[Rfam]
RNA: Ribosomal S15 leader
RNA sequence: CCCUCUGGCUGAGUUAGUGAUCGGCUGGAGAUACAUUCUAUAUAUUUUGGAGAUACACAUGUCACUAAGUACUGAAGCAAAAGCAAAAAUCCUAGCUGAUUUCGGCCGUUGUGAA
Numbered sequence: 001c002c003c004u005c006u007g008g009c010u011g012a013g014u015u016a017g018u019g020a021u022c023g024g025c026u027g028g029a030g031a032u033a034c035a036u037u038c039u040a041u042a043u044a045u046u047u048u049g050g051a052g053a054u055a056c057a058c059a060u061g062u063c064a065c066u067a068a069g070u071a072c073u074g075a076a077g078c079a080a081a082a083g084c085a086a087a088a089a090u091c092c093u094a095g096c097u098g099a100u101u102u103c104g105g106c107c108g109u110u111g112u113g114a115a
Stems, first nucleotide, its partner, number of pairs: 007026006046069005052063001